Shown here is a 100-nucleotide RNA from Bacillus oleivorans, a member of the family "BsrF". The literature on the family includes a 2008 paper in Gene by Saito et al., "Novel small RNA-encoding genes in the intergenic regions of Bacillus subtilis". It scores 77 bits against the family's covariance model. It is annotated as a small RNA. NCBI's taxonomy places the organism under Bacteria, Bacilli, Caryophanales, Bacillaceae, Bacillus.
[Rfam]
RNA sequence: GCGAUGAGCUGAAUUGUGUAAGUCGAUAGGCAUGCAAUGUGUAAUGUGGGACACAGUCUAUCGCCUCAAUACGUAAAAAAGACGUCUAUCUGGCGUCUUU
Numbered sequence: 001g002c003g004a005u006g007a008g009c010u011g012a013a014u015u016g017u018g019u020a021a022g023u024c025g026a027u028a029g030g031c032a033u034g035c036a037a038u039g040u041g042u043a044a045u046g047u048g049g050g051a052c053a054c055a056g057u058c059u060a061u062c063g064c065c066u067c068a069a070u071a072c073g074u075a076a077a078a079a080a081g082a083c084g085u086c087u088a089u090c091u092g093g094c095g096u097c098u099u100u
Base pairs, nucleotide, nucleotide: 014069015068016067018065024063025062026061027060028059029058030057031056038055039054041052042051078100079099080098081097082096083095084094085093086092